[Rfam]
RNA sequence: ACUCUCCCAGCUCGGCAUAGCUACAUUGUUUUCAUACGUGUGACUUUUGUAAUGGGGAGAGAAGGGAUCUCCUUGGGACCUCAGAUUGGCCUCACGGCGGCCACUCUUUCCUUGAGGGGCACAACAGGC
Numbered sequence: 001a002c003u004c005u006c007c008c009a010g011c012u013c014g015g016c017a018u019a020g021c022u023a024c025a026u027u028g029u030u031u032u033c034a035u036a037c038g039u040g041u042g043a044c045u046u047u048u049g050u051a052a053u054g055g056g057g058a059g060a061g062a063a064g065g066g067a068u069c070u071c072c073u074u075g076g077g078a079c080c081u082c083a084g085a086u087u088g089g090c091c092u093c094a095c096g097g098c099g100g101c102c103a104c105u106c107u108u109u110c111c112u113u114g115a116g117g118g119g120c121a122c123a124a125c126a127g128g129c
Stems, first nucleotide, its partner, number of pairs: 002061007015053001019045002022042005069119005075113003083107003087103005
Small nucleolar RNA SNORA64/SNORA10 family: a 129-nucleotide sequence from Hipposideros armiger. Rfam describes the family as follows. This family belongs to the H/ACA class of small nucleolar RNAs (snoRNAs) which act as guides in the the modification of uridines to pseudouridines. Gene Ontology terms of the family: nucleolus and RNA processing. Rfam 15.1 lists 703 matches to the family in 311 species. The family's RNA type in Rfam is H/ACA-box small nucleolar RNA. The base pairs follow the family's consensus structure, which is taken from published work. A reference for the family is Narayanan et al. (1999), "Nucleolar localization signals of box H/ACA small nucleolar RNAs", EMBO J. NCBI's taxonomy places the organism under Eukaryota, Bilateria, Chordata, Craniata, Hipposideros. Its Rfam clan is "SNORA64 clan".